[Rfam]
Record summary:
This 276-nucleotide sequence from Cyclopterus lumpus belongs to the Rfam family "Small Cajal body specific RNA 6". U88 is small Cajal body specific RNA (scaRNA). scaRNAs are a novel class of small nuclear RNAs which localise to the Cajal bodies. Taxonomically the source falls in Cyclopterus (Eukaryota, Actinopteri, Osteoglossocephalai, Eurypterygia). The base pairs follow the family's consensus structure, which is taken from published work. The match comes from Rfam's covariance-model search (105 bits). It is annotated as a small Cajal body RNA. Rfam 15.1 lists 1,309 matches to the family in 627 species. For this family Rfam cites "RNomics: an experimental approach that identifies 201 candidates for novel, small, non-messenger RNAs in mouse" (Huttenhofer et al., EMBO J, 2001).
RNA sequence: GGUCAGUGAUGUCAUGUAAAAGGUCUGAAUCUCAGAUCCCCCUCGUCGGCCAUUUUGGCUCCCAGCAGCCCCUGCUCUGUGCUCCCAUCAUGCUCUAGUUUUGCAGUGGUGGUCCCAGGAGCUGCUGACAGACAGGAUGUGACAUCACAGUGAGUCUGUACAGAGACCCUACAGGCUCAGUGUGAUGAUGACUGACAUCCAACAGAACCAUACAGUAUGGAGCGUGGGGCUGAGGGGGUGGGGCCUGAGUGCUGAUCUCACUCUUUUACUGAGACC
Numbered sequence: 001g002g003u004c005a006g007u008g009a010u011g012u013c014a015u016g017u018a019a020a021a022g023g024u025c026u027g028a029a030u031c032u033c034a035g036a037u038c039c040c041c042c043u044c045g046u047c048g049g050c051c052a053u054u055u056u057g058g059c060u061c062c063c064a065g066c067a068g069c070c071c072c073u074g075c076u077c078u079g080u081g082c083u084c085c086c087a088u089c090a091u092g093c094u095c096u097a098g099u100u101u102u103g104c105a106g107u108g109g110u111g112g113u114c115c116c117a118g119g120a121g122c123u124g125c126u127g128a129c130a131g132a133c134a135g136g137a138u139g140u141g142a143c144a145u146c147a148c149a150g151u152g153a154g155u156c157u158g159u160a161c162a163g164a165g166a167c168c169c170u171a172c173a174g175g176c177u178c179a180g181u182g183u184g185a186u187g188a189u190g191a192c193u194g195a196c197a198u199c200c201a202a203c204a205g206a207a208c209c210a211u212a213c214a215g216u217a218u219g220g221a222g223c224g225u226g227g228g229g230c231u232g233a234g235g236g237g238g239u240g241g242g243g244c245c246u247g248a249g250u251g252c253u254g255a256u257c258u259c260a261c262u263c264u265u266u267u268a269c270u271g272a273g274a275c276c
Stems, first nucleotide, its partner, number of pairs: 001276004034258005041235005048230001059222004063127007085112007093103001135200006151179010